[Rfam]
RNA: Eukaryotic large subunit ribosomal RNA, nucleotides 1 to 414
Organism: Entomophaga aulicae
RNA sequence: GUUAUUCAAAUCAAGCAAGGCUACCCGCUGAAUUUAAGCAUAUUAAUAAGCGGAGGAAAAGAAACUAACAAGGAUUCCCGUAGUAAUGGCGAAUGAACUGGGAAAGGCUCAAAUUUAAAAUCACUCACGUGAAUUGUAGUUUAUAAGAUUAAAGUCUCACAGCAACCACUGUUUAAGUGCUCUGGAAUGAUCCGUCAUAGAGGGUGAAAUCCCCGUACUGAACAGAGAGGAAGCUGCAAAGAACUUUUUUCUCAAGAGUCGUGUUGCUUGUUAAUGCAGCAUUAAGUGGGAGGUAAAUUCCUUCUAAAGCUAAAUAUUGGAGAGAGCCCGAUAGCAAACAAGUACCGUGAGGGAAAGAUGAAAGAGAACCCUGAAAAGGGGACUCAAAAGAAUGUGAAAUCGUCAAAAGGGAAG
Numbered sequence: 001g002u003u004a005u006u007c008a009a010a011u012c013a014a015g016c017a018a019g020g021c022u023a024c025c026c027g028c029u030g031a032a033u034u035u036a037a038g039c040a041u042a043u044u045a046a047u048a049a050g051c052g053g054a055g056g057a058a059a060a061g062a063a064a065c066u067a068a069c070a071a072g073g074a075u076u077c078c079c080g081u082a083g084u085a086a087u088g089g090c091g092a093a094u095g096a097a098c099u100g101g102g103a104a105a106g107g108c109u110c111a112a113a114u115u116u117a118a119a120a121u122c123a124c125u126c127a128c129g130u131g132a133a134u135u136g137u138a139g140u141u142u143a144u145a146a147g148a149u150u151a152a153a154g155u156c157u158c159a160c161a162g163c164a165a166c167c168a169c170u171g172u173u174u175a176a177g178u179g180c181u182c183u184g185g186a187a188u189g190a191u192c193c194g195u196c197a198u199a200g201a202g203g204g205u206g207a208a209a210u211c212c213c214c215g216u217a218c219u220g221a222a223c224a225g226a227g228a229g230g231a232a233g234c235u236g237c238a239a240a241g242a243a244c245u246u247u248u249u250u251c252u253c254a255a256g257a258g259u260c261g262u263g264u265u266g267c268u269u270g271u272u273a274a275u276g277c278a279g280c281a282u283u284a285a286g287u288g289g290g291a292g293g294u295a296a297a298u299u300c301c302u303u304c305u306a307a308a309g310c311u312a313a314a315u316a317u318u319g320g321a322g323a324g325a326g327c328c329c330g331a332u333a334g335c336a337a338a339c340a341a342g343u344a345c346c347g348u349g350a351g352g353g354a355a356a357g358a359u360g361a362a363a364g365a366g367a368a369c370c371c372u373g374a375a376a377a378g379g380g381g382a383c384u385c386a387a388a389a390g391a392a393u394g395u396g397a398a399a400u401c402g403u404c405a406a407a408a409g410g411g412a413a414g
Stems, first nucleotide, its partner, number of pairs: 024055001025053005035042002065072002076103005086094002106311004112141004118135002121132004146252002148249001151246001153245003160236004166230001167227001169225005177193001179192001181190002196200001203213002261282007288305005345352002369380004
Dot-bracket structure: .......................((((((.....((....))......))))).).........((....))...(((((.....((.....))....)))))..((((..((((..((.((((....)))).))..))))....(((..(.(((....((((..((.(((((...(.(.((......)).))..(...)..((.......)).......))))).)..)..))))......))))..).))........(((((((........))))))).....(((((........)))))..)))).................................((....))................((((....))))..................................